Shown here is a 112-nucleotide RNA sequence from Actinidia chinensis, a member of the family "MIR162_1 microRNA precursor family". Lineage of the source: Eukaryota > Embryophyta > Ericales > Actinidiaceae > Actinidia chinensis. For this family Rfam cites "MicroRNAs in plants" (Reinhart et al., Genes Dev, 2002).

RNA sequence: GAUGAGGUCACUGGACGCAGCGGUUCAUCGAUCUGUUCCCUGAACUGGCUGUGUAGUCAAAAUGUACAGAACAGGAAUCGGUCGAUAAACCUCUGCAUCCAGCGCUCACCCC
Numbered sequence: 001g002a003u004g005a006g007g008u009c010a011c012u013g014g015a016c017g018c019a020g021c022g023g024u025u026c027a028u029c030g031a032u033c034u035g036u037u038c039c040c041u042g043a044a045c046u047g048g049c050u051g052u053g054u055a056g057u058c059a060a061a062a063u064g065u066a067c068a069g070a071a072c073a074g075g076a077a078u079c080g081g082u083c084g085a086u087a088a089a090c091c092u093c094u095g096c097a098u099c100c101a102g103c104g105c106u107c108a109c110c111c112c
Base pairs, nucleotide, nucleotide: 013100014099015098018095019094020093022091023090024089025088027086028085029084030083031082032081033080036077037076038075